A member of the RNA family "MIR7486 microRNA precursor family" from Gossypium schwendimanii, 87 nucleotides long. Gene Ontology terms of the family: miRNA-mediated post-transcriptional gene silencing and RISC complex. The organism belongs to Gossypium, within Eukaryota. The family's consensus secondary structure was predicted with RNAalifold. The match comes from Rfam's covariance-model search (76 bits).

RNA sequence: CACGUCAGCGCGCUAUAAUGACGUGGACACAAAUCGCACUUUCAAGGCUGCGCUUUGUUGCCAUGUCAGCAUAGCGCGCUGAUGUGG
Numbered sequence: 001c002a003c004g005u006c007a008g009c010g011c012g013c014u015a016u017a018a019u020g021a022c023g024u025g026g027a028c029a030c031a032a033a034u035c036g037c038a039c040u041u042u043c044a045a046g047g048c049u050g051c052g053c054u055u056u057g058u059u060g061c062c063a064u065g066u067c068a069g070c071a072u073a074g075c076g077c078g079c080u081g082a083u084g085u086g087g
Stems, first nucleotide, its partner, number of pairs: 001086016019068003023064004029058005035052004040047002